Shown here is a 134-nucleotide RNA from Solibacillus silvestris, a member of the family "FMN riboswitch aptamer (RFN element)". Its family is annotated with FMN binding in the Gene Ontology.
RNA sequence: AAUUUCCUUCGGGGUCGGGUGAAAUUCCCAAUCGACGGUGAUGAGUAAUCUCUAAGCCCGUGAGCCACUUUUGUGUGCAGGAUUUGGUGCAAGUCCAAAGCCGACAGUUAUAGUCUGGAUGGGAGAAGGAAGCA
Numbered sequence: 001a002a003u004u005u006c007c008u009u010c011g012g013g014g015u016c017g018g019g020u021g022a023a024a025u026u027c028c029c030a031a032u033c034g035a036c037g038g039u040g041a042u043g044a045g046u047a048a049u050c051u052c053u054a055a056g057c058c059c060g061u062g063a064g065c066c067a068c069u070u071u072u073g074u075g076u077g078c079a080g081g082a083u084u085u086g087g088u089g090c091a092a093g094u095c096c097a098a099a100g101c102c103g104a105c106a107g108u109u110a111u112a113g114u115c116u117g118g119a120u121g122g123g124a125g126a127a128g129g130a131a132g133c134a
Stems, first nucleotide, its partner, number of pairs: 003132008017029003031114002033103002035061004056101002066077001083099005105117003